[Rfam]
RNA sequence: ACACACAAAUACACCCCAAUCCACGUGGUUUGGGAGGGAAUGAGGUGGAAUUUAAACUAAAUUACACCUCAAUCCCUCCCAAACCAUGUGGAUUGGGGUGGAUUUGUGU
Numbered sequence: 001a002c003a004c005a006c007a008a009a010u011a012c013a014c015c016c017c018a019a020u021c022c023a024c025g026u027g028g029u030u031u032g033g034g035a036g037g038g039a040a041u042g043a044g045g046u047g048g049a050a051u052u053u054a055a056a057c058u059a060a061a062u063u064a065c066a067c068c069u070c071a072a073u074c075c076c077u078c079c080c081a082a083a084c085c086a087u088g089u090g091g092a093u094u095g096g097g098g099u100g101g102a103u104u105u106g107u108g109u
Base pairs, nucleotide, nucleotide: 004108005107006106007105008104009103010102012100013099014098016096017095018094019093020092021091022090023089024088025087026086027085028084029083030082031081032080035077036076037075038074039073041071042070043069045067046066047065
The record is a 109-nucleotide sequence from Miscanthus lutarioriparius, which matches "MIR5565 microRNA precursor family" in Rfam. NCBI's taxonomy places the organism under Eukaryota, Tracheophyta, Liliopsida, Poaceae, Miscanthus. It scores 94 bits against the family's covariance model. The family's consensus secondary structure was predicted with RNAalifold. Rfam links the family to the GO terms miRNA-mediated post-transcriptional gene silencing and RISC complex.